A member of the RNA family "tp2" from Edwardsiella hoshinae, 110 nucleotides long. Taxonomically the source falls in Edwardsiella (Bacteria, Pseudomonadota, Gammaproteobacteria, Hafniaceae).

RNA sequence: GGUAUUCCUUAUCUGUCUAAUGGGUUAUCUGGAGCCUGUCUCCCUGCAUUUUCCUAGCAAAAACGCACGAAGACAGGCCCAAUCGGUUAGUUGCCUAGCAUUAACAUCGG
Numbered sequence: 001g002g003u004a005u006u007c008c009u010u011a012u013c014u015g016u017c018u019a020a021u022g023g024g025u026u027a028u029c030u031g032g033a034g035c036c037u038g039u040c041u042c043c044c045u046g047c048a049u050u051u052u053c054c055u056a057g058c059a060a061a062a063a064c065g066c067a068c069g070a071a072g073a074c075a076g077g078c079c080c081a082a083u084c085g086g087u088u089a090g091u092u093g094c095c096u097a098g099c100a101u102u103a104a105c106a107u108c109g110g
Base pairs, nucleotide, nucleotide: 001095002094003093004092032080034078035077036076037075038074039073040072043069045067046066047065049063050062051061052060
Description
The base pairs follow the family's consensus structure, which was predicted with RNAalifold.